Record summary:
S. aureus tsr24 small RNA: a 211-nucleotide sequence from Staphylococcus sp. HMSC071G07. A search with the family's covariance model found it, with a score of 72 bits.
[Rfam]
RNA sequence: AAUCUUUAUAAAUAAGGCACCUCGUUAAUUUAGUUUAGUGAAGUUUAUUAAAUUAUACGAAAGCGCCUUAUUUUUUUAAGUAUUUCAAUGUAAAAUUACAUAUAAACACAAAGUAUAUUGGCGAGACUCUUGAGGGAACAGGACAAGCUGAAGCUAUCCCCUAAUAAAGCGAGCCAACAAUAUGAAGUAUUGUAAAUAAAGAAGCCAGUAA
Numbered sequence: 001a002a003u004c005u006u007u008a009u010a011a012a013u014a015a016g017g018c019a020c021c022u023c024g025u026u027a028a029u030u031u032a033g034u035u036u037a038g039u040g041a042a043g044u045u046u047a048u049u050a051a052a053u054u055a056u057a058c059g060a061a062a063g064c065g066c067c068u069u070a071u072u073u074u075u076u077u078a079a080g081u082a083u084u085u086c087a088a089u090g091u092a093a094a095a096u097u098a099c100a101u102a103u104a105a106a107c108a109c110a111a112a113g114u115a116u117a118u119u120g121g122c123g124a125g126a127c128u129c130u131u132g133a134g135g136g137a138a139c140a141g142g143a144c145a146a147g148c149u150g151a152a153g154c155u156a157u158c159c160c161c162u163a164a165u166a167a168a169g170c171g172a173g174c175c176a177a178c179a180a181u182a183u184g185a186a187g188u189a190u191u192g193u194a195a196a197u198a199a200a201g202a203a204g205c206c207a208g209u210a211a
Stems, first nucleotide, its partner, number of pairs: 005196007022041007043064004048060001049055002081189006090099003101110001103108001113183004118177005128166001130164002133162004138157001141154001

Rfam 15.1 lists 98 matches to the family in 21 species.
Pairs were carried over by alignment from the consensus structure, which was predicted with RNAfold.